[Rfam]
Nucleotides: 093
Base pairs, nucleotide, nucleotide: 012037013036017032018031019030020029021028022027041086042085043084045083046082047081048078049077050076055072056071057070058069059068060067
Number, partner (000 for none) and nucleotide at each position: 001000c002000a003000c004000u005000g006000a007000a008000a009000a010000a011000g012037g013036c014000a015000a016000a017032c018031u019030c020029a021028c022027u023000g024000a025000a026000a027022g028021g029020u030019g031018a032017g033000g034000a035000c036013g037012c038000a039000a040000a041086g042085c043084c044000a045083c046082c047081g048078g049077u050076c051000u052000a053000a054000g055072g056071a057070a058069c059068c060067c061000a062000a063000c064000g065000c066000a067060g068059g069058g070057u071056u072055c073000u074000a075000c076050g077049a078048u079000a080000g081047c082046g083045g084043g085042g086041c087000c088000g089000c090000c091000a092000g093000a

The family of this 93-nucleotide RNA from Wenzhouxiangella sp. XN24 is "c-di-GMP-I riboswitch aptamer". GEMM was predicted in a large-scale screen for bacterial structured RNA regulatory elements. The match comes from Rfam's covariance-model search (82 bits). The organism belongs to Wenzhouxiangella, within Bacteria.